Shown here is a 227-nucleotide RNA from Mastigocoleus testarum, a member of the family "HNH endonuclease-associated RNA and ORF (HEARO) RNA".
It scores 109 bits against the family's covariance model.
On this family, see Weinberg et al., Nature 2009: "Exceptional structured noncoding RNAs revealed by bacterial metagenome analysis".
Lineage of the source: Bacteria > Bacillati > Cyanophyceae > Nostocales > Mastigocoleus testarum.
Rfam 15.1 lists 952 matches to the family in 249 species.

RNA sequence: GUCAACGACCCCCGGCUAAAGCCGGAGGCUUCCAGCCUUGAGUUGACCAGACUCAGUAGUUAACAACUACUACGUUUAGGGGGAGUGUUAAAGUUCCUACCUUGCACGGGUACAUGAUACUAGCCUCAAGCUCUAGAACUAGAAAGUUAAACAGAUUUAGAUGGGUUAAGUCAGUGCUUUCUAGAUACGCCGCCCCUAAACAUUGUCGUUCGCGAAGCGCGUCUCAG
Numbered sequence: 001g002u003c004a005a006c007g008a009c010c011c012c013c014g015g016c017u018a019a020a021g022c023c024g025g026a027g028g029c030u031u032c033c034a035g036c037c038u039u040g041a042g043u044u045g046a047c048c049a050g051a052c053u054c055a056g057u058a059g060u061u062a063a064c065a066a067c068u069a070c071u072a073c074g075u076u077u078a079g080g081g082g083g084a085g086u087g088u089u090a091a092a093g094u095u096c097c098u099a100c101c102u103u104g105c106a107c108g109g110g111u112a113c114a115u116g117a118u119a120c121u122a123g124c125c126u127c128a129a130g131c132u133c134u135a136g137a138a139c140u141a142g143a144a145a146g147u148u149a150a151a152c153a154g155a156u157u158u159a160g161a162u163g164g165g166u167u168a169a170g171u172c173a174g175u176g177c178u179u180u181c182u183a184g185a186u187a188c189g190c191c192g193c194c195c196c197u198a199a200a201c202a203u204u205g206u207c208g209u210u211c212g213c214g215a216a217g218c219g220c221g222u223c224u225c226a227g
Stems, first nucleotide, its partner, number of pairs: 001047006010028002012025002015022002050207003055071005074201009095137002101130004108126004118219001120217002139184009151175002154172007